Shown here is a 127-nucleotide RNA sequence from Galemys pyrenaicus, a member of the family "Small nucleolar RNA SNORA40". Gene Ontology terms of the family: nucleolus and RNA processing. The snoRNA ACA 40 belongs to the H/ACA family of snoRNAs and guides the pseudouridylation of 28S rRNA subunit at position U4565. The base pairs follow the family's consensus structure, which was predicted with RNAalifold. NCBI's taxonomy places the organism under Eukaryota, Craniata, Gnathostomata, Eutheria, Galemys.

RNA sequence: AGUACUUGCGUUUGUUUUGUUUGUUGGACAAAGAUUUUGUGACAAGUGCUGAGAAUAAAUCCUCUCCUGCAAUCCACCCAGAACUCAUUGUUUGGUAUAUAUUUUGAUACAGUUAAGAAAGAACAUA
Dot-bracket structure: ((((((((.....(((((((.......)))))).).......)))))))).........(.((.((.((.........(((((...((........))...))))).......)).)).)).)....